[Rfam]
RNA sequence: GUUGGGAACGGCCUCGCGUGAUGACGCUUCUCUCUCUGAUGGCUGUGGUGAUGAGGAUCAUCAAACCAAAGCCUCUAAGAAGUUGACUGAAGAGACCGUUCCUCC
Numbered sequence: 001g002u003u004g005g006g007a008a009c010g011g012c013c014u015c016g017c018g019u020g021a022u023g024a025c026g027c028u029u030c031u032c033u034c035u036c037u038g039a040u041g042g043c044u045g046u047g048g049u050g051a052u053g054a055g056g057a058u059c060a061u062c063a064a065a066c067c068a069a070a071g072c073c074u075c076u077a078a079g080a081a082g083u084u085g086a087c088u089g090a091a092g093a094g095a096c097c098g099u100u101c102c103u104c105c
Base pairs, nucleotide, nucleotide: 007100008099009098010097011096013094014093015092
Shown here is a 105-nucleotide sequence from Podiceps cristatus, a member of the family "Small nucleolar RNA SNORD125".
For this family Rfam cites "snoSeeker: an advanced computational package for screening of guide and orphan snoRNA genes in the human genome" (Yang et al., Nucleic Acids Res, 2006).
Pairs were carried over by alignment from the consensus structure, which was predicted with WAR.
A search with the family's covariance model found it, with a score of 62 bits.
By type it is a C/D-box small nucleolar RNA.
Its family is annotated with RNA processing and nucleolus in the Gene Ontology.
Lineage of the source: Eukaryota > Gnathostomata > Dinosauria > Podicipediformes > Podiceps.